[Rfam]
RNase MRP: a 655-nucleotide sequence from Ceratocystis fimbriata.
RNA sequence: CCCCUCGCCUGACAAAUCGCUAUCGAAGCUCUCACACAGAGAAUUGGUUGCAGUUUCUGCACCGCGUCUCAUUCGUUGAUUCGGAUAUCUGAAGCUUUGGGAGAAAGUCCCCGGACAUGGAUUUCACUUUGUGGAAUCUGCUGCGGAAACGCGCCGUCGGAGAUAUUGAUUGCACUCUUUGGGUGCAUUCAUCGACGGCUGACCUCUGCCUGGCCCUUGUCCUCAGUCUGGCCCUCUACCCGCCUCGCUAUCUUUAAACAUCGGCUUGCGCUCUCUACAAGCCGUCUUGGGACACAGCCAGCCUACGGAGCUCGUCAUGAUCUCAACUACCACUACCGCGAACCAGACAGCUUUUGGGACGAAGAUACGAGUCCCUUGUCACUUGGUCUCUGGGAGUGUGUGGUUGAGUCAUUGGGCUCUCAAGGCUGGUUCCUUUGGCGGCGUCGUAAAGGGCGGUCCCGAGCUGGUGGGCGAGUGCGACGUUUACUUGAGGCGCCUAGUGCUGGGGGCGUGAUGGGGGCGCUGGAGGAUAACAUUGUCGUGUUUUGAUAGGCAUGCGAUUGCGCGUUGUGCGUGUUGGGCUCAUGCUGCCUUUGGUAGCUGGAUUCAACAUCUGCGACGGGUUACUCGAUGGGGCUCAUUCUCGGGACGAGGG
Numbered sequence: 001c002c003c004c005u006c007g008c009c010u011g012a013c014a015a016a017u018c019g020c021u022a023u024c025g026a027a028g029c030u031c032u033c034a035c036a037c038a039g040a041g042a043a044u045u046g047g048u049u050g051c052a053g054u055u056u057c058u059g060c061a062c063c064g065c066g067u068c069u070c071a072u073u074c075g076u077u078g079a080u081u082c083g084g085a086u087a088u089c090u091g092a093a094g095c096u097u098u099g100g101g102a103g104a105a106a107g108u109c110c111c112c113g114g115a116c117a118u119g120g121a122u123u124u125c126a127c128u129u130u131g132u133g134g135a136a137u138c139u140g141c142u143g144c145g146g147a148a149a150c151g152c153g154c155c156g157u158c159g160g161a162g163a164u165a166u167u168g169a170u171u172g173c174a175c176u177c178u179u180u181g182g183g184u185g186c187a188u189u190c191a192u193c194g195a196c197g198g199c200u201g202a203c204c205u206c207u208g209c210c211u212g213g214c215c216c217u218u219g220u221c222c223u224c225a226g227u228c229u230g231g232c233c234c235u236c237u238a239c240c241c242g243c244c245u246c247g248c249u250a251u252c253u254u255u256a257a258a259c260a261u262c263g264g265c266u267u268g269c270g271c272u273c274u275c276u277a278c279a280a281g282c283c284g285u286c287u288u289g290g291g292a293c294a295c296a297g298c299c300a301g302c303c304u305a306c307g308g309a310g311c312u313c314g315u316c317a318u319g320a321u322c323u324c325a326a327c328u329a330c331c332a333c334u335a336c337c338g339c340g341a342a343c344c345a346g347a348c349a350g351c352u353u354u355u356g357g358g359a360c361g362a363a364g365a366u367a368c369g370a371g372u373c374c375c376u377u378g379u380c381a382c383u384u385g386g387u388c389u390c391u392g393g394g395a396g397u398g399u400g401u402g403g404u405u406g407a408g409u410c411a412u413u414g415g416g417c418u419c420u421c422a423a424g425g426c427u428g429g430u431u432c433c434u435u436u437g438g439c440g441g442c443g444u445c446g447u448a449a450a451g452g453g454c455g456g457u458c459c460c461g462a463g464c465u466g467g468u469g470g471g472c473g474a475g476u477g478c479g480a481c482g483u484u485u486a487c488u489u490g491a492g493g494c495g496c497c498u499a500g501u502g503c504u505g506g507g508g509g510c511g512u513g514a515u516g517g518g519g520g521c522g523c524u525g526g527a528g529g530a531u532a533a534c535a536u537u538g539u540c541g542u543g544u545u546u547u548g549a550u551a552g553g554c555a556u557g558c559g560a561u562u563g564c565g566c567g568u569u570g571u572g573c574g575u576g577u578u579g580g581g582c583u584c585a586u587g588c589u590g591c592c593u594u595u596g597g598u599a600g601c602u603g604g605a606u607u608c609a610a611c612a613u614c615u616g617c618g619a620c621g622g623g624u625u626a627c628u629c630g631a632u633g634g635g636g637c638u639c640a641u642u643c644u645c646g647g648g649a650c651g652a653g654g655g
Stems, first nucleotide, its partner, number of pairs: 002655005008648005015562006023101001024099006041082008106638002109636004142153004438523003444519002447516001493503004564623001566621007
By type it is a ribozyme. Rfam describes the family as follows. RNase MRP is an enzymatically active ribonucleoprotein with two distinct roles in eukaryotes. In mitochondria it plays a direct role in the initiation of mitochondrial DNA replication. In the nucleus it is involved in precursor rRNA processing, where it cleaves the internal transcribed spacer 1 between 18S and 5.8S rRNAs.